Rfam assigns this 136-nucleotide RNA sequence from Chrysochloris asiatica to the family "Small nucleolar RNA SNORA15". Rfam's curators write: ACA15 is a member of the H/ACA class of snoRNA that guide the sites of modification of uridines to pseudouridines. Pairs were carried over by alignment from the consensus structure, which was predicted with RNAfold. The literature on the family includes a 2001 paper in EMBO J by Huttenhofer et al., "RNomics: an experimental approach that identifies 201 candidates for novel, small, non-messenger RNAs in mouse".
[Rfam]
RNA sequence: GCAUGGCUGAAUACUGUGUUUUUUUAAUCAGUAAUUUACACAGCCAGACACCAUGCCAAAGUAUCAUCUUCACUUUGAAAUGUUGAUGUAUGCCAAGUUUUUUCUUGGCAUACUGCUAUCAAAGGUGAAUACAAAU
Number, nucleotide and partner (000 for none) at each position: 001g056002c055003a054004u053005g052006g051007c000008u000009g000010a000011a000012u000013a000014c043015u042016g041017u040018g039019u038020u000021u000022u000023u000024u000025u000026a000027a000028u000029c000030a000031g000032u000033a000034a000035u000036u000037u000038a019039c018040a017041c016042a015043g014044c000045c000046a000047g000048a000049c000050a000051c006052c005053a004054u003055g002056c001057c000058a000059a000060a000061g000062u000063a000064u000065c000066a000067u000068c000069u129070u128071c127072a000073c124074u123075u122076u121077g120078a119079a000080a000081u000082g000083u000084u000085g116086a000087u000088g113089u112090a111091u110092g109093c108094c107095a106096a000097g000098u000099u000100u000101u000102u000103u000104c000105u000106u095107g094108g093109c092110a091111u090112a089113c088114u000115g000116c085117u000118a000119u078120c077121a076122a075123a074124g073125g000126u000127g071128a070129a069130u000131a000132c000133a000134a000135a000136u000